RNA: Small nucleolar RNA SNORD109A
Organism: Microtus ochrogaster
RNA sequence: GGAUCAGUGAUAAGAACAACAAUGUCAGGAUGCUGAACAACUCUUAGAAAUAGCAAACUCAGGUCC
Numbered sequence: 001g002g003a004u005c006a007g008u009g010a011u012a013a014g015a016a017c018a019a020c021a022a023u024g025u026c027a028g029g030a031u032g033c034u035g036a037a038c039a040a041c042u043c044u045u046a047g048a049a050a051u052a053g054c055a056a057a058c059u060c061a062g063g064u065c066c
Stems, first nucleotide, its partner, number of pairs: 001066005